[Rfam]
RNA sequence: GACGAGGUGGCUGAGUGGUUAAGGCGAUUGACUGCUAAUCCAUUGUGCUCUGCACGCGUGGGUUCGAAUCCCAUCCUUAUCG
Numbered sequence: 001g002a003c004g005a006g007g008u009g010g011c012u013g014a015g016u017g018g019u020u021a022a023g024g025c026g027a028u029u030g031a032c033u034g035c036u037a038a039u040c041c042a043u044u045g046u047g048c049u050c051u052g053c054a055c056g057c058g059u060g061g062g063u064u065c066g067a068a069u070c071c072c073a074u075c076c077u078u079a080u081c082g
Base pairs, nucleotide, nucleotide: 001081002080004078005077006076007075010025011024012023027043028042030040031039058074059073060072061071062070
Annotation
This 82-nucleotide sequence from Danionella cerebrum belongs to the Rfam family "tRNA". Rfam classes the family as a transfer RNA. The match comes from Rfam's covariance-model search (48 bits). About the family: Transfer RNA (tRNA) molecules are approximately 80 nucleotides in length.